[Rfam]
RNA sequence: UGCAUUCACUACUGUAAGUCGCUCUGGAUAAGAGCGUCUGUAAAAUGACGUAAA
Numbered sequence: 001u002g003c004a005u006u007c008a009c010u011a012c013u014g015u016a017a018g019u020c021g022c023u024c025u026g027g028a029u030a031a032g033a034g035c036g037u038c039u040g041u042a043a044a045a046u047g048a049c050g051u052a053a054a
Stems, first nucleotide, its partner, number of pairs: 013043001014041003020036006
Background:
A member of the RNA family "UnaL2 LINE 3' element" from Salmo trutta, 54 nucleotides long. A search with the family's covariance model found it, with a score of 65 bits. A reference for the family is Baba et al. (2004), "Solution structure of an RNA stem-loop derived from the 3' conserved region of eel LINE UnaL2", RNA. Lineage of the source: Eukaryota > Bilateria > Teleostomi > Salmoninae > Salmo. By type it is a cis-regulatory element. The base pairs follow the family's consensus structure, which is taken from published work.